[Rfam]
RNA sequence: AUAAAUGCUUGGAUGGGGAAGAGUAGGAAGGGAAUUCUGACAGAGAGGACGAUCGGCUUGCAUGCCGCUGAAAGAUUGUCCCGGAAGGAAAUUCUGAAGGUCGCCCCGGAGCAGCCGCAGUGAAUGCAGUAGCUGUGGACGAGUCAGCCACGUUACGGCCGGGAGUGUACUGAAGACGGGAGGAUUCCCGUUUCAGUAAACAAAGGUGGUACCGCGAGGAUUCUAACCCUCUUCGUCCUUUGA
Numbered sequence: 001a002u003a004a005a006u007g008c009u010u011g012g013a014u015g016g017g018g019a020a021g022a023g024u025a026g027g028a029a030g031g032g033a034a035u036u037c038u039g040a041c042a043g044a045g046a047g048g049a050c051g052a053u054c055g056g057c058u059u060g061c062a063u064g065c066c067g068c069u070g071a072a073a074g075a076u077u078g079u080c081c082c083g084g085a086a087g088g089a090a091a092u093u094c095u096g097a098a099g100g101u102c103g104c105c106c107c108g109g110a111g112c113a114g115c116c117g118c119a120g121u122g123a124a125u126g127c128a129g130u131a132g133c134u135g136u137g138g139a140c141g142a143g144u145c146a147g148c149c150a151c152g153u154u155a156c157g158g159c160c161g162g163g164a165g166u167g168u169a170c171u172g173a174a175g176a177c178g179g180g181a182g183g184a185u186u187c188c189c190g191u192u193u194c195a196g197u198a199a200a201c202a203a204a205g206g207u208g209g210u211a212c213c214g215c216g217a218g219g220a221u222u223c224u225a226a227c228c229c230u231c232u233u234c235g236u237c238c239u240u241u242g243a
Base pairs, nucleotide, nucleotide: 007112008111015107016106017105018104026095027094028093029092037084038083039082049079050078051077052076053075054074115138116137117136118135119134120133121132140152141151168198169197170196171195172194173193174192203240204239205238206237214236215235216234217233218232219231220230